Small nucleolar RNA SNORD83: a 76-nucleotide RNA from Steatornis caripensis. The family's RNA type in Rfam is C/D-box small nucleolar RNA. The literature on the family includes a 2000 paper in Nucleic Acids Res by Jady and Kiss, "Characterisation of the U83 and U84 small nucleolar RNAs: two novel 2'-O-ribose methylation guide RNAs that lack complementarities to ribosomal RNAs". Rfam 15.1 lists 1,393 matches to the family in 644 species. Pairs were carried over by alignment from the consensus structure, which was predicted with PFOLD.

RNA sequence: GCCAAAUGAUGCAAAGUGGAUUGCAUUAGAACUCUUUGCAAAGAUGACCUUCAUCUAUCACUCUAUACUGAUGGCU
Dot-bracket structure: ((((........................(.(.....).)................................)))).
Numbered sequence: 001g002c003c004a005a006a007u008g009a010u011g012c013a014a015a016g017u018g019g020a021u022u023g024c025a026u027u028a029g030a031a032c033u034c035u036u037u038g039c040a041a042a043g044a045u046g047a048c049c050u051u052c053a054u055c056u057a058u059c060a061c062u063c064u065a066u067a068c069u070g071a072u073g074g075c076u
Stems, first nucleotide, its partner, number of pairs: 001075004029039001031037001